[Rfam]
RNA sequence: AUAAAAUCGAAUGUUAUACCGUAGACAGCAGGGGCCGAUGUGCUUAAUCAUCCUGCCGAGGUGUUUAUUUAUAGAAAGGCAAACCGUUUUGCCAAUCUAAAGUAAGCUCUCAUGUCUACAUGAGAGCUUUUUUAAUAGAAAG
Numbered sequence: 001a002u003a004a005a006a007u008c009g010a011a012u013g014u015u016a017u018a019c020c021g022u023a024g025a026c027a028g029c030a031g032g033g034g035c036c037g038a039u040g041u042g043c044u045u046a047a048u049c050a051u052c053c054u055g056c057c058g059a060g061g062u063g064u065u066u067a068u069u070u071a072u073a074g075a076a077a078g079g080c081a082a083a084c085c086g087u088u089u090u091g092c093c094a095a096u097c098u099a100a101a102g103u104a105a106g107c108u109c110u111c112a113u114g115u116c117u118a119c120a121u122g123a124g125a126g127c128u129u130u131u132u133u134a135a136u137a138g139a140a141a142g
Stems, first nucleotide, its partner, number of pairs: 028056006034043002106127009
A member of the RNA family "Ribosomal protein L10 leader" from Oceanobacillus sp. J11TS1, 142 nucleotides long. Rfam classes the family as a cis-regulatory leader. Lineage of the source: Bacteria > Bacilli > Caryophanales > Bacillaceae > Oceanobacillus. The family's consensus secondary structure was predicted with CMfinder. Rfam describes the family as follows. This family is a putative r-protein leader autoregulatory structure found in B. subtilis and other low-GC Gram-positive bacteria. It is located in the 5' untranslated regions of mRNAs encoding ribosomal proteins L10 and L12 (rplJ-rplL). A Rho-independent transcription terminator structure that is probably involved in regulation is included at the 3' end.